A member of the RNA family "RNase MRP" from Salvator merianae, 298 nucleotides long. The family has 66 seed sequences and 3,510 matches in Rfam 15.1. From the family's description: RNase MRP is an enzymatically active ribonucleoprotein with two distinct roles in eukaryotes. In mitochondria it plays a direct role in the initiation of mitochondrial DNA replication. Taxonomically the source falls in Salvator (Eukaryota, Sauropsida, Laterata, Teiioidea).
RNA sequence: AGGUGUUCUAAAGACCUGCUUUCUAGGCUACGUACGGAGGACGGUGUUCCUCUUGGGCCAAUGGCCCGCCUUGGGGAAAGUCCCCGGACCCUGGGCAGAGAGUGCCGCGCACUUCUUGGUGUGCAACAACCCGUUUCGCCAGCUCACGGAAUCCUCGCCAAGAAGCCCCAAGGGCUGAGCGGGUGAGCGCGGGAGGGGCCUCUCGUCACGCUGAAUAGUUACGCAGGUAGUGCGCAUAUGCUUCUUCGCUCUCGAAGACGUACCGCACCAACAGAACGGGGCUCAUUCUCAGAACGCC
Numbered sequence: 001a002g003g004u005g006u007u008c009u010a011a012a013g014a015c016c017u018g019c020u021u022u023c024u025a026g027g028c029u030a031c032g033u034a035c036g037g038a039g040g041a042c043g044g045u046g047u048u049c050c051u052c053u054u055g056g057g058c059c060a061a062u063g064g065c066c067c068g069c070c071u072u073g074g075g076g077a078a079a080g081u082c083c084c085c086g087g088a089c090c091c092u093g094g095g096c097a098g099a100g101a102g103u104g105c106c107g108c109g110c111a112c113u114u115c116u117u118g119g120u121g122u123g124c125a126a127c128a129a130c131c132c133g134u135u136u137c138g139c140c141a142g143c144u145c146a147c148g149g150a151a152u153c154c155u156c157g158c159c160a161a162g163a164a165g166c167c168c169c170a171a172g173g174g175c176u177g178a179g180c181g182g183g184u185g186a187g188c189g190c191g192g193g194a195g196g197g198g199c200c201u202c203u204c205g206u207c208a209c210g211c212u213g214a215a216u217a218g219u220u221a222c223g224c225a226g227g228u229a230g231u232g233c234g235c236a237u238a239u240g241c242u243u244c245u246u247c248g249c250u251c252u253c254g255a256a257g258a259c260g261u262a263c264c265g266c267a268c269c270a271a272c273a274g275a276a277c278g279g280g281g282c283u284c285a286u287u288c289u290c291a292g293a294a295c296g297c298c
Stems, first nucleotide, its partner, number of pairs: 002298008011289001014228006022074002025071004037052005079283002082281004094106004107124006127198001134194006143187004155182004165175004230268005

Rfam links the family to the GO terms ribonuclease MRP activity, ribonuclease MRP complex and rRNA processing. By type it is a ribozyme.